[Rfam]
RNA: Purine riboswitch aptamer
Organism: Paenibacillus rigui
RNA sequence: CAUCACCAUCGCAUUCCAAUUCGUAUAUCCUCAAUAAUCGGAUUGAGGCUCUCUAGAAGGAACCGUGAAUUCCUAACUACGAAUGACAGAGCUUUUAUG
Numbered sequence: 001c002a003u004c005a006c007c008a009u010c011g012c013a014u015u016c017c018a019a020u021u022c023g024u025a026u027a028u029c030c031u032c033a034a035u036a037a038u039c040g041g042a043u044u045g046a047g048g049c050u051c052u053c054u055a056g057a058a059g060g061a062a063c064c065g066u067g068a069a070u071u072c073c074u075a076a077c078u079a080c081g082a083a084u085g086a087c088a089g090a091g092c093u094u095u096u097a098u099g
Stems, first nucleotide, its partner, number of pairs: 019084007029048007058074005